Record summary
A member of the RNA family "Bacteriophage Diversity-Generating Retroelement RNA", 126 nucleotides long.

[Rfam]
RNA sequence: ACACCGCCGCGCCGCUUCGGCGUUGCGGGCUGGUGGUCAGCCCGGCUGUCCUGCUUCGGCAAACACACUUCACGGUCCGGCAGAGCGGGGCGUAGCGGGCUUUGCCCGUCGAGACCCGCGGCCGGU
Numbered sequence: 001a002c003a004c005c006g007c008c009g010c011g012c013c014g015c016u017u018c019g020g021c022g023u024u025g026c027g028g029g030c031u032g033g034u035g036g037u038c039a040g041c042c043c044g045g046c047u048g049u050c051c052u053g054c055u056u057c058g059g060c061a062a063a064c065a066c067a068c069u070u071c072a073c074g075g076u077c078c079g080g081c082a083g084a085g086c087g088g089g090g091c092g093u094a095g096c097g098g099g100c101u102u103u104g105c106c107c108g109u110c111g112a113g114a115c116c117c118g119c120g121g122c123c124g125g126u
Base pairs, nucleotide, nucleotide: 002029004028005027006026007025009023010022014021015020052061053060054059075126077125078124079123080122081121086118087117088116089115095110096108097107098106099105100104
Annotation:
The sequence is in the family's curated seed alignment.